[Rfam]
The family of this 165-nucleotide sequence from Chrysochloris asiatica is "U1 spliceosomal RNA". It scores 162 bits against the family's covariance model. U1 is a small nuclear RNA (snRNA) component of the spliceosome (involved in pre-mRNA splicing).

Nucleotides: 165
Stems, first nucleotide, its partner, number of pairs: 012123004016048003020044002024041004049091004054087001056084003061079002063076002093118003096114003100110002139164006147156003
Number, partner (000 for none) and nucleotide at each position: 001000a002000u003000a004000c005000u006000u007000a008000c009000c010000u011000g012123g013122c014121a015120g016048g017047g018046g019000u020044g021043a022000u023000u024041c025040c026039a027038u028000g029000a030000u031000c032000a033000u034000g035000a036000a037000u038027g039026u040025g041024g042000u043021u044020u045000c046018c047017c048016c049091a050090g051089g052088g053000u054087g055000a056084g057083g058082c059000u060000a061079a062078u063076c064075c065000a066000u067000u068000g069000c070000a071000c072000u073000u074000u075064g076063g077000g078062a079061u080000c081000u082058g083057c084056u085000g086000a087054c088052c089051c090050c091049u092000g093118c094117g095116a096114u097113u098112u099000c100110c101109c102000c103000a104000a105000a106000u107000g108000u109101g110100g111000g112098a113097a114096a115000c116095u117094c118093g119000a120015c121014u122013g123012c124000a125000c126000a127000a128000u129000u130000u131000g132000u133000g134000a135000u136000a137000g138000u139164g140163g141162g142161g143160g144159a145000c146000u147156g148155c149154g150000u151000u152000c153000g154149c155148g156147c157000u158000c159144u160143c161142c162141c163140c164139u165000g

By type it is a spliceosomal small nuclear RNA.